A member of the RNA family "ctgf/hcs24 CAESAR" from Tupaia belangeri, 84 nucleotides long. From the family's description: The 3' UTR of human connective tissue growth factor/hypertrophic chondrocyte specific 24 (ctgf/hcs24) mRNA has been shown to repress ctgf gene expression. Rfam classes the family as a cis-regulatory element. Rfam links the family to the GO term negative regulation of gene expression. Lineage of the source: Eukaryota > Deuterostomia > Chordata > Eutheria > Tupaia belangeri.
[Rfam]
RNA sequence: AUGGAGACAUACACGGCAUGAAGCCCGAGAGUGAGAGACAUUAACUCCUUAGACUAUGACUUGAACUGAUUUACAUCUCAUUUU
Numbered sequence: 001a002u003g004g005a006g007a008c009a010u011a012c013a014c015g016g017c018a019u020g021a022a023g024c025c026c027g028a029g030a031g032u033g034a035g036a037g038a039c040a041u042u043a044a045c046u047c048c049u050u051a052g053a054c055u056a057u058g059a060c061u062u063g064a065a066c067u068g069a070u071u072u073a074c075a076u077c078u079c080a081u082u083u084u
Stems, first nucleotide, its partner, number of pairs: 004079004015025003031074004